[Rfam]
RNA sequence: CCGCCGGGCCGUGACUGGCGCGAACGAGAUGGGUGCAACCAUCGGGGAGCGGUCCGCUCCGUGGAGUGCCGCGCGCCUGGGCCGUCCGC
Numbered sequence: 001c002c003g004c005c006g007g008g009c010c011g012u013g014a015c016u017g018g019c020g021c022g023a024a025c026g027a028g029a030u031g032g033g034u035g036c037a038a039c040c041a042u043c044g045g046g047g048a049g050c051g052g053u054c055c056g057c058u059c060c061g062u063g064g065a066g067u068g069c070c071g072c073g074c075g076c077c078u079g080g081g082c083c084g085u086c087c088g089c
Stems, first nucleotide, its partner, number of pairs: 003058001005056008015046002017077005029042004068082003
RNA: ZMP/ZTP riboswitch aptamer (pfl RNA motif)
Organism: Streptomyces lonarensis